The record is an 86-nucleotide sequence from Anaeromassilibacillus sp. An250, which matches "Glycine riboswitch aptamer" in Rfam.
RNA sequence: AUGAAGAUACCGGGAGAGACCGCGCAUUUGCGGCGCCGAAGGGGCUACGCCGAAAACUCUCAGGCAAAAGGGACCGGUAUCCGACA
Number, nucleotide and partner (000 for none) at each position: 001a000002u000003g000004a000005a000006g081007a080008u079009a078010c077011c076012g075013g074014g000015a000016g000017a000018g000019a000020c033021c032022g031023c030024g000025c000026a000027u000028u000029u000030g023031c022032g021033g020034c000035g065036c064037c063038g061039a060040a000041g000042g059043g058044g057045c000046u000047a000048c052049g000050c000051c000052g048053a000054a000055a000056a000057c044058u043059c042060u039061c038062a000063g037064g036065c035066a000067a000068a000069a000070g000071g000072g000073a000074c013075c012076g011077g010078u009079a008080u007081c006082c000083g000084a000085c000086a000
The match comes from Rfam's covariance-model search (68 bits). The source organism's lineage runs through Bacteria, Bacillati, Bacillota, Clostridia and Anaeromassilibacillus. The pairing is the family consensus, mapped onto this sequence.